This 123-nucleotide RNA sequence from Escherichia coli belongs to the Rfam family "STnc490 Hfq binding RNA". The family has 76 seed sequences and 285 matches in Rfam 15.1. The match comes from Rfam's covariance-model search (66 bits). By type it is a small RNA.
RNA sequence: AAACAUCAGCCAAGCUGGUUGGUUCAGUAACGCUUUCAUCUUUGAGCAUUUUAUAAAAAAUUCUUGAAUUGUUAAAAUAGAUUAAAGUCUGGUAACAGCAAAAGUUAAACGAGAAAUCAAAAG
Numbered sequence: 001a002a003a004c005a006u007c008a009g010c011c012a013a014g015c016u017g018g019u020u021g022g023u024u025c026a027g028u029a030a031c032g033c034u035u036u037c038a039u040c041u042u043u044g045a046g047c048a049u050u051u052u053a054u055a056a057a058a059a060a061u062u063c064u065u066g067a068a069u070u071g072u073u074a075a076a077a078u079a080g081a082u083u084a085a086a087g088u089c090u091g092g093u094a095a096c097a098g099c100a101a102a103a104g105u106u107a108a109a110c111g112a113g114a115a116a117u118c119a120a121a122a123g
Stems, first nucleotide, its partner, number of pairs: 001024002004021001005019006029043002032040001034038001063123001064120004069115001070111004076106003082101002087096002